Fluoride riboswitch aptamer (crcB RNA motif): a 59-nucleotide RNA from Caldanaerobius fijiensis. The literature on the family includes a 2012 paper in Science by Baker et al., "Widespread genetic switches and toxicity resistance proteins for fluoride".
RNA sequence: UAUAAAUAUGGUGAUGGGGCUCACCUUAAAUGCGAAAUGCUAAUGGCUCCUACUUUGAU
Numbered sequence: 001u002a003u004a005a006a007u008a009u010g011g012u013g014a015u016g017g018g019g020c021u022c023a024c025c026u027u028a029a030a031u032g033c034g035a036a037a038u039g040c041u042a043a044u045g046g047c048u049c050c051u052a053c054u055u056u057g058a059u
Stems, first nucleotide, its partner, number of pairs: 010025004016050006032040002
Dot-bracket structure: .........[[[[..((((((]]]]......((.....))....)))))).........